[Rfam]
RNA sequence: CUCCGCGAAAUCUAUUGAGGUAGAGCGUCGAAUGUAUGCCAUCGGGGGUAGAGCACUGGAUGGGCUAGGGGGUCGCGAGAUCUACCAAACCUAACCAAACUCCGAAUACCGAUGAGUCUUGUUCGGCAGACAGACGGCGGGUGCUAAGGUCCGUCGUCAAAAGGGAAACAGCCCUAACCUACAGCUAAGGUCCCCAAGUCAUCACUAAGUGGGAAAGCAUGUGGGAUUUCCAAAACAACCAGGAGGUUGGCUUAGAAGCAGCCAUCCUUUAAAGAAAGCGUAACAGCUCACUGGUCUAAAUAAGAGAUCCUGCGGCGAAGAUGUAACGGGGCUAAAGUGAUGCACCGAAGCUUAGGGUUCAUAGUUUACUAUGAGCGGUAGCGGAGCGUUCCGUAAGUUGAUGAAGCCGAAGGGUAACCGACGGUGGAGAUAUCGGAAGUGCGAAU
Numbered sequence: 001c002u003c004c005g006c007g008a009a010a011u012c013u014a015u016u017g018a019g020g021u022a023g024a025g026c027g028u029c030g031a032a033u034g035u036a037u038g039c040c041a042u043c044g045g046g047g048g049u050a051g052a053g054c055a056c057u058g059g060a061u062g063g064g065c066u067a068g069g070g071g072g073u074c075g076c077g078a079g080a081u082c083u084a085c086c087a088a089a090c091c092u093a094a095c096c097a098a099a100c101u102c103c104g105a106a107u108a109c110c111g112a113u114g115a116g117u118c119u120u121g122u123u124c125g126g127c128a129g130a131c132a133g134a135c136g137g138c139g140g141g142u143g144c145u146a147a148g149g150u151c152c153g154u155c156g157u158c159a160a161a162a163g164g165g166a167a168a169c170a171g172c173c174c175u176a177a178c179c180u181a182c183a184g185c186u187a188a189g190g191u192c193c194c195c196a197a198g199u200c201a202u203c204a205c206u207a208a209g210u211g212g213g214a215a216a217g218c219a220u221g222u223g224g225g226a227u228u229u230c231c232a233a234a235a236c237a238a239c240c241a242g243g244a245g246g247u248u249g250g251c252u253u254a255g256a257a258g259c260a261g262c263c264a265u266c267c268u269u270u271a272a273a274g275a276a277a278g279c280g281u282a283a284c285a286g287c288u289c290a291c292u293g294g295u296c297u298a299a300a301u302a303a304g305a306g307a308u309c310c311u312g313c314g315g316c317g318a319a320g321a322u323g324u325a326a327c328g329g330g331g332c333u334a335a336a337g338u339g340a341u342g343c344a345c346c347g348a349a350g351c352u353u354a355g356g357g358u359u360c361a362u363a364g365u366u367u368a369c370u371a372u373g374a375g376c377g378g379u380a381g382c383g384g385a386g387c388g389u390u391c392c393g394u395a396a397g398u399u400g401a402u403g404a405a406g407c408c409g410a411a412g413g414g415u416a417a418c419c420g421a422c423g424g425u426g427g428a429g430a431u432a433u434c435g436g437a438a439g440u441g442c443g444a445a446u
Base pairs, nucleotide, nucleotide: 001386002385003384004383005382006381011024012023013022014021015020026129027127028126029125030124031123032122033121036120040114041113042112043111044110045109051103052101053100057097058096059095061093062092063091064090068086069085070083071082072081073080074079133158134157135156136155137154138153139152140151141150142149163174164173165172178356179355180354181353183352184351185350189346190345191344198343200342201341202340203339204338205337217316218315221313222312223311224310225309226308227307228306229305230304238295239294240293241292242291244268245267246266249263250262251261269273274289278287279286357376358375359374360373361372362371363370364369387441389438390437391436392435393434397431398430399429406425407424408423409422412419413418